[Rfam]
RNA sequence: UCAUGAACUUUGUACCGCGCACAUCGCCUAGAUGGGUUCUAGAAAGUCAUGUAGGAA
Numbered sequence: 001u002c003a004u005g006a007a008c009u010u011u012g013u014a015c016c017g018c019g020c021a022c023a024u025c026g027c028c029u030a031g032a033u034g035g036g037u038u039c040u041a042g043a044a045a046g047u048c049a050u051g052u053a054g055g056a057a
Stems, first nucleotide, its partner, number of pairs: 019037002022034004
Notes:
Plastid-ndhJ 3UTR RNA: a 57-nucleotide sequence from Cornus nuttallii. NCBI's taxonomy places the organism under Eukaryota, Streptophyta, Euphyllophyta, Cornales, Cornus. It is one of the family's seed sequences. About the family: Plastid ndhJ is a non-coding RNA (ncRNA) present in plastids. It was identified as a short stem-loop motif in the 3 prime untranslate region (3UTR) of ndhJ gene. The literature on the family includes a 2023 paper in Plant Commun by Richter et al., "Retrograde signaling in plants: A critical review focusing on the GUN pathway and beyond". Pairs were carried over by alignment from the consensus structure, which was predicted with LocARNA.